[Rfam]
A member of the RNA family "Glycine riboswitch aptamer" from Rhizobium oryziradicis, 88 nucleotides long. Gene Ontology term of the family: glycine biosynthetic process. This family represents the bacterial glycine riboswitch. Glycine riboswitches usually consist of two metabolite-binding aptamers domains with similar structures in tandem. The match comes from Rfam's covariance-model search (64 bits).

RNA sequence: AUGACCUUGUUGGGAGAAUCCGGUUUAAUCCGGUGCCGAAGGAGCAACCGCCCCGGAAACUCUCAGGCAAACGGACCACAAGGGGUAG
Dot-bracket structure: .....(((..(((......((((......)))).(((((..(((...((.....))...))))).))).......)))..))).....